RNA sequence: GUAUAAGAUCAGGGGUUUCUUUCGGCCUCCAGCAUAUUAUGAAAGGUUGUAGGCCGGCGGAAACUACUUGCUUUUGUGC
Numbered sequence: 001g002u003a004u005a006a007g008a009u010c011a012g013g014g015g016u017u018u019c020u021u022u023c024g025g026c027c028u029c030c031a032g033c034a035u036a037u038u039a040u041g042a043a044a045g046g047u048u049g050u051a052g053g054c055c056g057g058c059g060g061a062a063a064c065u066a067c068u069u070g071c072u073u074u075u076g077u078g079c
Stems, first nucleotide, its partner, number of pairs: 005075004010070004014065007022057007030049003
Shown here is a 79-nucleotide sequence from Phaedon cochleariae, a member of the family "mir-2796 microRNA precursor family". A search with the family's covariance model found it, with a score of 77 bits.